[Rfam]
RNA: nadA riboswitch
RNA sequence: GGCUUCAACAACCCCGCGGUCUGGGCGCUGAUUCCGAUUGCGAGUUUCGGAAAAUGAAGCGCAGUGAGCCCGCUGGAGCC
Numbered sequence: 001g002g003c004u005u006c007a008a009c010a011a012c013c014c015c016g017c018g019g020u021c022u023g024g025g026c027g028c029u030g031a032u033u034c035c036g037a038u039u040g041c042g043a044g045u046u047u048c049g050g051a052a053a054a055u056g057a058a059g060c061g062c063a064g065u066g067a068g069c070c071c072g073c074u075g076g077a078g079c080c
Base pairs, nucleotide, nucleotide: 001080002079003078004077005076006075007074013066014064016073017072018071019070021068022067023065025062026061027060028059029058031055032054033053